[Rfam]
RNA sequence: GGAAGUAGCAACUAUUCAAAUGAGAACUUUGAAGACUGAAGUGGAGAAGGGUUUCUUGUCAACUGUGAUUGAACAAGAGUUAGCCGCUCCUAAGGGAUAGCUGAAAAGUGUUUAAAAGGGGUUUCUUCCCCGUCUCAAAAGGGAAACAGGUUGAUAUUCCUGUGCCAAUAGUAUUAUGAGUUUCUUAGAUGGUAACAUAUAUAUAAAUGAACUCCUUUACAUAGGCUUUACACUCGGGGUGCGUUUUCUUUGCACUUUACCUUUAUAACAAACCUUGGAAUCAAUUUACUUGGAGAAGAGGUUCGUUGAACUCAAUUCAAAAAAUUUCUUGAACGGGGUUUUCGGAUUCAGUUCAUUUUAUUUUUUGUUUUGUAGCAAUAGUAAUUCGUUUUUAUGAAUUAUCCGAAGUGGUAAGGACUAUCCUUGAAAAAAGGAGGGAACGGCUUUGUAAACUUGGUUUCUUCUGAUUCCAUUUUGCUUUGCUAUACUCUUAAUACUUGUAUGAGCGUACCAACAACCGCAUCAGGUCUCCAAGGUUAACAGCCUCUGGUUAAA
Numbered sequence: 001g002g003a004a005g006u007a008g009c010a011a012c013u014a015u016u017c018a019a020a021u022g023a024g025a026a027c028u029u030u031g032a033a034g035a036c037u038g039a040a041g042u043g044g045a046g047a048a049g050g051g052u053u054u055c056u057u058g059u060c061a062a063c064u065g066u067g068a069u070u071g072a073a074c075a076a077g078a079g080u081u082a083g084c085c086g087c088u089c090c091u092a093a094g095g096g097a098u099a100g101c102u103g104a105a106a107a108g109u110g111u112u113u114a115a116a117a118g119g120g121g122u123u124u125c126u127u128c129c130c131c132g133u134c135u136c137a138a139a140a141g142g143g144a145a146a147c148a149g150g151u152u153g154a155u156a157u158u159c160c161u162g163u164g165c166c167a168a169u170a171g172u173a174u175u176a177u178g179a180g181u182u183u184c185u186u187a188g189a190u191g192g193u194a195a196c197a198u199a200u201a202u203a204u205a206a207a208u209g210a211a212c213u214c215c216u217u218u219a220c221a222u223a224g225g226c227u228u229u230a231c232a233c234u235c236g237g238g239g240u241g242c243g244u245u246u247u248c249u250u251u252g253c254a255c256u257u258u259a260c261c262u263u264u265a266u267a268a269c270a271a272a273c274c275u276u277g278g279a280a281u282c283a284a285u286u287u288a289c290u291u292g293g294a295g296a297a298g299a300g301g302u303u304c305g306u307u308g309a310a311c312u313c314a315a316u317u318c319a320a321a322a323a324a325u326u327u328c329u330u331g332a333a334c335g336g337g338g339u340u341u342u343c344g345g346a347u348u349c350a351g352u353u354c355a356u357u358u359u360a361u362u363u364u365u366u367g368u369u370u371u372g373u374a375g376c377a378a379u380a381g382u383a384a385u386u387c388g389u390u391u392u393u394a395u396g397a398a399u400u401a402u403c404c405g406a407a408g409u410g411g412u413a414a415g416g417a418c419u420a421u422c423c424u425u426g427a428a429a430a431a432a433g434g435a436g437g438g439a440a441c442g443g444c445u446u447u448g449u450a451a452a453c454u455u456g457g458u459u460u461c462u463u464c465u466g467a468u469u470c471c472a473u474u475u476u477g478c479u480u481u482g483c484u485a486u487a488c489u490c491u492u493a494a495u496a497c498u499u500g501u502a503u504g505a506g507c508g509u510a511c512c513a514a515c516a517a518c519c520g521c522a523u524c525a526g527g528u529c530u531c532c533a534a535g536g537u538u539a540a541c542a543g544c545c546u547c548u549g550g551u552u553a554a555a
Stems, first nucleotide, its partner, number of pairs: 015033006034552004043532004049512002054078006063071001085508003089142002094136002096112003100109003119129003146163005166504002177500005182494002189204003212436006221421004226416006234406003237257006272302005281293004314400006518527002534546004

The family of this 555-nucleotide part of an RNA from Plasmodium falciparum is "Eukaryotic large subunit ribosomal RNA". Taxonomically the source falls in Plasmodium falciparum (Eukaryota, Alveolata, Apicomplexa, Aconoidasida). The base pairs follow the family's consensus structure, which is taken from published work. The match comes from Rfam's covariance-model search (2658 bits).